The family of this 114-nucleotide RNA sequence from Conger conger is "Potassium channel RNA editing signal". The source organism's lineage runs through Eukaryota, Vertebrata, Gnathostomata, Teleostei and Conger. Rfam describes the family as follows. This family represents a group of sequences related to the human potassium channel Kv1.1 hairpin element which directs the efficient modification of an adenosine to inosine by an adenosine deaminase acting on RNA (ADAR).
RNA sequence: GUUGGCUAUGGGGACAUGCACCCAGUCACCAUAGGUGGCAAAAUCGUGGGAUCUCUGUGCGCGAUCGCCGGGGUGUUAACCAUCGCUUUGCCGGUGCCGGUAAUAGUUUCAAAU
Numbered sequence: 001g002u003u004g005g006c007u008a009u010g011g012g013g014a015c016a017u018g019c020a021c022c023c024a025g026u027c028a029c030c031a032u033a034g035g036u037g038g039c040a041a042a043a044u045c046g047u048g049g050g051a052u053c054u055c056u057g058u059g060c061g062c063g064a065u066c067g068c069c070g071g072g073g074u075g076u077u078a079a080c081c082a083u084c085g086c087u088u089u090g091c092c093g094g095u096g097c098c099g100g101u102a103a104u105a106g107u108u109u110c111a112a113a114u
Base pairs, nucleotide, nucleotide: 001114002113005110008107009106011104014101015100018097019096020095021094037077038076039075040074050062